[Rfam]
RNA sequence: GUCUCCGUGGCGCAGUGGAGAGCGCGCCGGGUUGCGGACCCGGAGGUGGCAGGUUCGAUUCCUGCCGGAGACG
Number, nucleotide and partner (000 for none) at each position: 001g072002u071003c070004u069005c068006c067007g066008u000009g000010g025011c024012g023013c022014a000015g000016u000017g000018g000019a000020g000021a000022g013023c012024g011025c010026g000027c043028c042029g041030g040031g039032u000033u000034g000035c000036g000037g000038a000039c031040c030041c029042g028043g027044a000045g000046g000047u000048g000049g065050c064051a063052g062053g061054u000055u000056c000057g000058a000059u000060u000061c053062c052063u051064g050065c049066c007067g006068g005069a004070g003071a002072c001073g000
Source information
This 73-nucleotide RNA sequence from Actinomadura sp. BRA 177 belongs to the Rfam family "tRNA". The base pairs follow the family's consensus structure, which is taken from published work. By type it is a transfer RNA. It scores 66 bits against the family's covariance model. NCBI's taxonomy places the organism under Bacteria, Bacillati, Actinomycetota, Thermomonosporaceae, Actinomadura.